RNA: PhrS
RNA sequence: GUCAUUCCCAGCAAGGACUGGUGCAGGAGGCAAGCAUGUUUAUCGAUGUGGUGGUUCUCGCCGGUAUCGGCACCGUCGGCCUGAUGGUCGCGUUCUUCGCCGGCGUCGGUUAUUUCAUCUGGAAGGAUUCGCACAAGCGCAAGACGCGCUGAAUCCCUCCGGCAACGGGCACGCAAGGCAAUUCGGGCGACUUAGGUCGCCCUUUUUUUGU
Numbered sequence: 001g002u003c004a005u006u007c008c009c010a011g012c013a014a015g016g017a018c019u020g021g022u023g024c025a026g027g028a029g030g031c032a033a034g035c036a037u038g039u040u041u042a043u044c045g046a047u048g049u050g051g052u053g054g055u056u057c058u059c060g061c062c063g064g065u066a067u068c069g070g071c072a073c074c075g076u077c078g079g080c081c082u083g084a085u086g087g088u089c090g091c092g093u094u095c096u097u098c099g100c101c102g103g104c105g106u107c108g109g110u111u112a113u114u115u116c117a118u119c120u121g122g123a124a125g126g127a128u129u130c131g132c133a134c135a136a137g138c139g140c141a142a143g144a145c146g147c148g149c150u151g152a153a154u155c156c157c158u159c160c161g162g163c164a165a166c167g168g169g170c171a172c173g174c175a176a177g178g179c180a181a182u183u184c185g186g187g188c189g190a191c192u193u194a195g196g197u198c199g200c201c202c203u204u205u206u207u208u209u210g211u
Base pairs, nucleotide, nucleotide: 005102008099051061052060053059078089079088080087081086169179170178172177185202186201187200188199189198190197191196